[Rfam]
RNA: mir-86 microRNA precursor family
Organism: Caenorhabditis elegans
RNA sequence: ACGCCGUCUAAGUGAAUGCUUUGCCACAGUCUUCGAUGUUCUGAAAUGAAGCCUGGGCUCAGAUUCGCUUAGGCCGGAGU
Numbered sequence: 001a002c003g004c005c006g007u008c009u010a011a012g013u014g015a016a017u018g019c020u021u022u023g024c025c026a027c028a029g030u031c032u033u034c035g036a037u038g039u040u041c042u043g044a045a046a047u048g049a050a051g052c053c054u055g056g057g058c059u060c061a062g063a064u065u066c067g068c069u070u071a072g073g074c075c076g077g078a079g080u
Stems, first nucleotide, its partner, number of pairs: 004077003009071009019062002023058003027055003
Dot-bracket structure: ...(((..(((((((((.((..(((.(((.......................))))))..)))))))))))...)))...